[Rfam]
Overview: Rfam assigns this 101-nucleotide RNA sequence from Capsicum baccatum to the family "Small nucleolar RNA snoR99". Lineage of the source: Eukaryota > Magnoliopsida > eudicotyledons > Capsiceae > Capsicum. Rfam links the family to the GO terms RNA processing and nucleolus.

RNA sequence: UUGUUUUAGGGAUGAACAAUUCAUUGAUAGUUGAAUUAAUUCAUUCCUUUGUCAUCAUCACAAUGUUUGUAUUUUGCUGAUCAUUAUUGGAUGGUACGAUU
Numbered sequence: 001u002u003g004u005u006u007u008a009g010g011g012a013u014g015a016a017c018a019a020u021u022c023a024u025u026g027a028u029a030g031u032u033g034a035a036u037u038a039a040u041u042c043a044u045u046c047c048u049u050u051g052u053c054a055u056c057a058u059c060a061c062a063a064u065g066u067u068u069g070u071a072u073u074u075u076g077c078u079g080a081u082c083a084u085u086a087u088u089g090g091a092u093g094g095u096a097c098g099a100u101u
Stems, first nucleotide, its partner, number of pairs: 041094005051081004056076002